[Rfam]
RNA sequence: UGGCUUGGUUUCCUGGGAGGUGGGCUCAGUGUACUCCACCUCCUCUCAGCUAAGCCUAGAGUACAGGGCCAGGUAUGCACCUGUGUGGGAGAGGUGCUUAAGCAGGGAGCCUUGCCCGGCUUUCCUAGCCUCACAUUU
Numbered sequence: 001u002g003g004c005u006u007g008g009u010u011u012c013c014u015g016g017g018a019g020g021u022g023g024g025c026u027c028a029g030u031g032u033a034c035u036c037c038a039c040c041u042c043c044u045c046u047c048a049g050c051u052a053a054g055c056c057u058a059g060a061g062u063a064c065a066g067g068g069c070c071a072g073g074u075a076u077g078c079a080c081c082u083g084u085g086u087g088g089g090a091g092a093g094g095u096g097c098u099u100a101a102g103c104a105g106g107g108a109g110c111c112u113u114g115c116c117c118g119g120c121u122u123u124c125c126u127a128g129c130c131u132c133a134c135a136u137u138u
Stems, first nucleotide, its partner, number of pairs: 002056006015044010066132001067130003071126003077120002087112003
RNA: Small Cajal body specific RNA 21